Annotation:
Rfam assigns this 86-nucleotide RNA from Pseudomonas sp. 21C1 to the family "gyrA RNA".

RNA sequence: UCGUGAGUCGUUACUGGCAUAGAGCCAUGGCGGCGCGCUUCGAGCGGUUCAGCAUGAAUCGCGCGGGGCAUCACCAGAAAAAGGAA
Numbered sequence: 001u002c003g004u005g006a007g008u009c010g011u012u013a014c015u016g017g018c019a020u021a022g023a024g025c026c027a028u029g030g031c032g033g034c035g036c037g038c039u040u041c042g043a044g045c046g047g048u049u050c051a052g053c054a055u056g057a058a059u060c061g062c063g064c065g066g067g068g069c070a071u072c073a074c075c076a077g078a079a080a081a082a083g084g085a086a
Stems, first nucleotide, its partner, number of pairs: 007034007017025002035071001037069006044062007
It is annotated as a cis-regulatory element.